RNA sequence: AUACUUACCUUAAGAUAUCAGGGGAGAUCAAGAAGUCCUACUGAUCAAACAUGCACUUCCAAUGGUAGAAGGACGUUAAGCAUUCAUCUUUGAACUUUUAACAGUUCAUUGAAGUCAUUGAUGCAAACUCCUUGGUCUCAUACACAUACGUCGCGGAAGGUGUGUUUGCUGACGUUUCCGUUCCCUUGUUUCAAUCAUUGGUUAUCCCGUGGUUUCUUCGGAGAUCUUGGGGUUCAACUGAUUUUUGAGGCCCUUUGUUUCUUCUGCCUGGAGAAGUUUGACACCAAAUUCAAAUUGGUGUUAGGGGAGCUGGGGUCUUUUAGAAGAGAGUUUUAUCGAGACAUUCUUUUAAGUGUACUUUUCUCUAGUGUACCCUCCAGUCUUUCAAUGGCAGAUUCGAAUGAACUUUUGUUUAUGAUGAAGGUAUAGCUAUUGGGAUUGAUUGGUCAGAAUUGUAUAUUUGGAGAUGCGCUCUUUUGAGCAGUCUCGACUUUACUCAUUUCCAUUUAUGGAAAAAAUUUUAGAAGAACUUGGUAGGAACGGGUGGAUCUUAUAAUUUUUGAUUUAUUUU
Numbered sequence: 001a002u003a004c005u006u007a008c009c010u011u012a013a014g015a016u017a018u019c020a021g022g023g024g025a026g027a028u029c030a031a032g033a034a035g036u037c038c039u040a041c042u043g044a045u046c047a048a049a050c051a052u053g054c055a056c057u058u059c060c061a062a063u064g065g066u067a068g069a070a071g072g073a074c075g076u077u078a079a080g081c082a083u084u085c086a087u088c089u090u091u092g093a094a095c096u097u098u099u100a101a102c103a104g105u106u107c108a109u110u111g112a113a114g115u116c117a118u119u120g121a122u123g124c125a126a127a128c129u130c131c132u133u134g135g136u137c138u139c140a141u142a143c144a145c146a147u148a149c150g151u152c153g154c155g156g157a158a159g160g161u162g163u164g165u166u167u168g169c170u171g172a173c174g175u176u177u178c179c180g181u182u183c184c185c186u187u188g189u190u191u192c193a194a195u196c197a198u199u200g201g202u203u204a205u206c207c208c209g210u211g212g213u214u215u216c217u218u219c220g221g222a223g224a225u226c227u228u229g230g231g232g233u234u235c236a237a238c239u240g241a242u243u244u245u246u247g248a249g250g251c252c253c254u255u256u257g258u259u260u261c262u263u264c265u266g267c268c269u270g271g272a273g274a275a276g277u278u279u280g281a282c283a284c285c286a287a288a289u290u291c292a293a294a295u296u297g298g299u300g301u302u303a304g305g306g307g308a309g310c311u312g313g314g315g316u317c318u319u320u321u322a323g324a325a326g327a328g329a330g331u332u333u334u335a336u337c338g339a340g341a342c343a344u345u346c347u348u349u350u351a352a353g354u355g356u357a358c359u360u361u362u363c364u365c366u367a368g369u370g371u372a373c374c375c376u377c378c379a380g381u382c383u384u385u386c387a388a389u390g391g392c393a394g395a396u397u398c399g400a401a402u403g404a405a406c407u408u409u410u411g412u413u414u415a416u417g418a419u420g421a422a423g424g425u426a427u428a429g430c431u432a433u434u435g436g437g438a439u440u441g442a443u444u445g446g447u448c449a450g451a452a453u454u455g456u457a458u459a460u461u462u463g464g465a466g467a468u469g470c471g472c473u474c475u476u477u478u479g480a481g482c483a484g485u486c487u488c489g490a491c492u493u494u495a496c497u498c499a500u501u502u503c504c505a506u507u508u509a510u511g512g513a514a515a516a517a518a519u520u521u522u523a524g525a526a527g528a529a530c531u532u533g534g535u536a537g538g539a540a541c542g543g544g545u546g547g548a549u550c551u552u553a554u555a556a557u558u559u560u561u562g563a564u565u566u567a568u569u570u571u
Stems, first nucleotide, its partner, number of pairs: 010556003013551003017045005022039004046168009056159005074150003173542006182308006188251007198241005211226006261276005281301007502513004

The record is a 571-nucleotide RNA from Saccharomyces arboricola, which matches "Yeast U1 spliceosomal RNA" in Rfam. Rfam's curators write: U1 is a small nuclear RNA (snRNA) component of the spliceosome (involved in pre-mRNA splicing). Its 5' end forms complementary base pairs with the 5' splice junction, thus defining the 5' donor site of an intron. There are significant differences in sequence and secondary structure between metazoan and yeast U1 snRNAs, the latter being much longer (568 nucleotides as compared to 164 nucleotides in human). It scores 529 bits against the family's covariance model.